Notes: Rfam assigns this 136-nucleotide RNA sequence from Chanos chanos to the family "Small nucleolar RNA SNORA31". The family's RNA type in Rfam is H/ACA-box small nucleolar RNA. For this family Rfam cites "RNomics: an experimental approach that identifies 201 candidates for novel, small, non-messenger RNAs in mouse" (Huttenhofer et al., EMBO J, 2001). Rfam links the family to the GO terms nucleolus and RNA processing. ACA31 (SNORA31) belongs to the H/ACA class of snoRNAs which are thought to guide the sites of modification of uridines to pseudouridines. ACA31 is predicted to guide the pseudouridylation of U3713 in 28S rRNA and U218 in 18S rRNA. This family includes the mouse homologue snoMBI-161.
RNA sequence: UGGCAUCCUUUGACAGCCCAGAGAGCCUCCUGUUGUGGCCACCUGGGUCUAUAGAUAUGGCGAUGCUACAGUAACGUCCCUGCGCUUUCUACAUGUCCUGUCUGUGGCAUGCUGGAUUGAAUUGGGGACGACAUGA
Number, nucleotide and partner (000 for none) at each position: 001u000002g067003g066004c065005a064006u063007c062008c060009u000010u000011u053012g052013a000014c000015a050016g049017c000018c047019c046020a000021g000022a000023g000024a000025g039026c038027c037028u000029c035030c000031u000032g000033u000034u000035g029036u000037g027038g026039c025040c000041a000042c000043c000044u000045g000046g019047g018048u000049c016050u015051a000052u012053a011054g000055a000056u000057a000058u000059g000060g008061c000062g007063a006064u005065g004066c003067u002068a000069c000070a000071g000072u000073a000074a000075c000076g000077u128078c127079c126080c125081u124082g123083c000084g000085c119086u000087u000088u116089c115090u114091a113092c000093a110094u109095g108096u107097c106098c000099u000100g000101u000102c000103u000104g000105u000106g097107g096108c095109a094110u093111g000112c000113u091114g090115g089116a088117u000118u000119g085120a000121a000122u000123u082124g081125g080126g079127g078128a077129c000130g000131a000132c000133a000134u000135g000136a000